Shown here is a 95-nucleotide RNA from Caulobacter vibrioides, a member of the family "caulobacter sRNA CC0734". The base pairs follow the family's consensus structure. The literature on the family includes a 2008 paper in Mol Microbiol by Landt et al., "Small non-coding RNAs in Caulobacter crescentus". By type it is a small RNA. The family has 2 seed sequences and 9 matches in Rfam 15.1.
[Rfam]
RNA sequence: GUAGCCCUUUGAUUUUUCAGAACACUGCCAAAUCGACCAUUUGGGGUCACCACUCAACGCUGGCCACAAACGGCAUGGUGACCACUUAAGGCUGU
Numbered sequence: 001g002u003a004g005c006c007c008u009u010u011g012a013u014u015u016u017u018c019a020g021a022a023c024a025c026u027g028c029c030a031a032a033u034c035g036a037c038c039a040u041u042u043g044g045g046g047u048c049a050c051c052a053c054u055c056a057a058c059g060c061u062g063g064c065c066a067c068a069a070a071c072g073g074c075a076u077g078g079u080g081a082c083c084a085c086u087u088a089a090g091g092c093u094g095u
Base pairs, nucleotide, nucleotide: 010035011034012033013032014031045083046082047081048080049079050078051077052076059074060073061072062071